Rfam assigns this 86-nucleotide sequence from Bacillus sp. B1-b2 to the family "c-di-GMP-I riboswitch aptamer". Taxonomically the source falls in Bacillus (Bacteria, Bacillota, Caryophanales, Bacillaceae).
RNA sequence: ACUGAAAAAAGGCAAACUUGUUGAAAAGCAAGGACGCAAAGCUAUGGACCUAAACGUAUUCUACGUAUGGUUGCCAAGUUGCCAGU
Numbered sequence: 001a002c003u004g005a006a007a008a009a010a011g012g013c014a015a016a017c018u019u020g021u022u023g024a025a026a027a028g029c030a031a032g033g034a035c036g037c038a039a040a041g042c043u044a045u046g047g048a049c050c051u052a053a054a055c056g057u058a059u060u061c062u063a064c065g066u067a068u069g070g071u072u073g074c075c076a077a078g079u080u081g082c083c084a085g086u
Base pairs, nucleotide, nucleotide: 012037013036017032018031019030020029021028022027040080041079042078043077045076046075047074048071049070050069055065056064057063058062